The family of this 99-nucleotide sequence from Pseudoalteromonas phenolica is "t44 RNA". The family's RNA type in Rfam is small RNA. Taxonomically the source falls in Pseudoalteromonas (Bacteria, Pseudomonadati, Gammaproteobacteria, Pseudoalteromonadaceae). A search with the family's covariance model found it, with a score of 73 bits. Rfam describes the family as follows. This family consists of a number of bacterial RNA genes of between 135 and 170 bases in length. The family's consensus secondary structure was predicted with LocARNA.
RNA sequence: AUACUUUUUAUAUUAACACACACACAUAUCGACACAUACACUUGGGUGCAGGUAAUUACAUAUUACGUGUUGGUGCUAUGGGAUAUGUGGAGGCCUAAC
Numbered sequence: 001a002u003a004c005u006u007u008u009u010a011u012a013u014u015a016a017c018a019c020a021c022a023c024a025c026a027u028a029u030c031g032a033c034a035c036a037u038a039c040a041c042u043u044g045g046g047u048g049c050a051g052g053u054a055a056u057u058a059c060a061u062a063u064u065a066c067g068u069g070u071u072g073g074u075g076c077u078a079u080g081g082g083a084u085a086u087g088u089g090g091a092g093g094c095c096u097a098a099c
Stems, first nucleotide, its partner, number of pairs: 023089008035080004040074003048070003052066001